[Rfam]
The family of this 225-nucleotide RNA sequence from Dactylococcopsis salina is "HNH endonuclease-associated RNA and ORF (HEARO) RNA".
The match comes from Rfam's covariance-model search (140 bits).

RNA sequence: GUCAACGACCCACCGUUAAACCUCUUGGGAGGUUAUAACGGGGGCUUCUUGAAGCCCACAAGUUGACCAGCCUAAGUCUCUAGAAGACUACGUUUCUAAAGCCAUCACACCUCGGAAUGCGUGCUAGUUCCCCGCUCUGUGGUUAACAGUUAAACAUUCCUAACUGGGUUAAGAAAGUGCUGUUAGCUUGACAAACUUUAGAAACCUUGGCGAAGCAUACUUAAC
Numbered sequence: 001g002u003c004a005a006c007g008a009c010c011c012a013c014c015g016u017u018a019a020a021c022c023u024c025u026u027g028g029g030a031g032g033u034u035a036u037a038a039c040g041g042g043g044g045c046u047u048c049u050u051g052a053a054g055c056c057c058a059c060a061a062g063u064u065g066a067c068c069a070g071c072c073u074a075a076g077u078c079u080c081u082a083g084a085a086g087a088c089u090a091c092g093u094u095u096c097u098a099a100a101g102c103c104a105u106c107a108c109a110c111c112u113c114g115g116a117a118u119g120c121g122u123g124c125u126a127g128u129u130c131c132c133c134g135c136u137c138u139g140u141g142g143u144u145a146a147c148a149g150u151u152a153a154a155c156a157u158u159c160c161u162a163a164c165u166g167g168g169u170u171a172a173g174a175a176a177g178u179g180c181u182g183u184u185a186g187c188u189u190g191a192c193a194a195a196c197u198u199u200a201g202a203a204a205c206c207u208u209g210g211c212g213a214a215g216c217a218u219a220c221u222u223a224a225c
Base pairs, nucleotide, nucleotide: 001067002066003065004064005063006062010044011043013041014040017037045054046053047052070211071210072209074207075089076088077087078086079085092205093204094203095202096201097200098199099198100197101196107140108139111134114131115130116129117128118127119221123216124215125214142187143186144185145184146183147182148181149180150179154178155177157175158174159173161171162170163169
The source organism's lineage runs through Bacteria, Bacillati, Cyanobacteriota, Nodosilineales and Dactylococcopsis salina. The base pairs follow the family's consensus structure, which is taken from published work. Rfam 15.1 lists 952 matches to the family in 249 species.